[Rfam]
RNA: DUF805 RNA
Organism: Urechidicola croceus
RNA sequence: UAAAUGUGGAGACCAGAACCCACAUAAAUAAACGGGGAGUUAUUUCGAAAAUCCUAAAGAGUAGAAGAAAA
Numbered sequence: 001u002a003a004a005u006g007u008g009g010a011g012a013c014c015a016g017a018a019c020c021c022a023c024a025u026a027a028a029u030a031a032a033c034g035g036g037g038a039g040u041u042a043u044u045u046c047g048a049a050a051a052u053c054c055u056a057a058a059g060a061g062u063a064g065a066a067g068a069a070a071a
Stems, first nucleotide, its partner, number of pairs: 006023004036054003043065002